Plasmodium RNA of unknown function RUF2: a 153-nucleotide sequence from Plasmodium yoelii.
On this family, see Chakrabarti et al., RNA 2007: "Structural RNAs of known and unknown function identified in malaria parasites by comparative genomics and RNA analysis".
The organism belongs to Plasmodium yoelii, within Eukaryota.
Rfam classes the family as a small RNA.
[Rfam]
RNA sequence: UUAUUUAAAUAUUUAUUUAAGUAUUUAUUUAAAUGUUUAUUUAAAUAUUUUUAAACAAAUAAUAACGUCAAACUUGUUCAUACAACAAAUGUAUAUACGGUGGCUUUUUAAAUUUUGAUUUUAAAAGUGUCAAUCCAUAUAUAUCACAGACCU
Numbered sequence: 001u002u003a004u005u006u007a008a009a010u011a012u013u014u015a016u017u018u019a020a021g022u023a024u025u026u027a028u029u030u031a032a033a034u035g036u037u038u039a040u041u042u043a044a045a046u047a048u049u050u051u052u053a054a055a056c057a058a059a060u061a062a063u064a065a066c067g068u069c070a071a072a073c074u075u076g077u078u079c080a081u082a083c084a085a086c087a088a089a090u091g092u093a094u095a096u097a098c099g100g101u102g103g104c105u106u107u108u109u110a111a112a113u114u115u116u117g118a119u120u121u122u123a124a125a126a127g128u129g130u131c132a133a134u135c136c137a138u139a140u141a142u143a144u145c146a147c148a149g150a151c152c153u
Stems, first nucleotide, its partner, number of pairs: 006080001008078004021066002025062005034057006091144007099136002101132004105127008